[Rfam]
RNA sequence: UCAAUAUGUUGAUGAAAACCUCAUAUAUUAUGGGAAUAAGGCCCGUACGUUUCUACCCGAUUACCGUAAAUAAUUGGACUAUGAGGAAAGUGGAAGUUUGG
Numbered sequence: 001u002c003a004a005u006a007u008g009u010u011g012a013u014g015a016a017a018a019c020c021u022c023a024u025a026u027a028u029u030a031u032g033g034g035a036a037u038a039a040g041g042c043c044c045g046u047a048c049g050u051u052u053c054u055a056c057c058c059g060a061u062u063a064c065c066g067u068a069a070a071u072a073a074u075u076g077g078a079c080u081a082u083g084a085g086g087a088a089a090g091u092g093g094a095a096g097u098u099u100g101g
Base pairs, nucleotide, nucleotide: 019086020085021084022083023082024081025080029047030046031045032044033043034042057077058076059075060074061073062072063071
A member of the RNA family "Purine riboswitch aptamer" from Bacillus sp. FJAT-50079, 101 nucleotides long. Riboswitches are metabolite binding domains within certain messenger RNAs that serve as precision sensors for their corresponding targets. The family's consensus secondary structure is taken from published work. A search with the family's covariance model found it, with a score of 78 bits.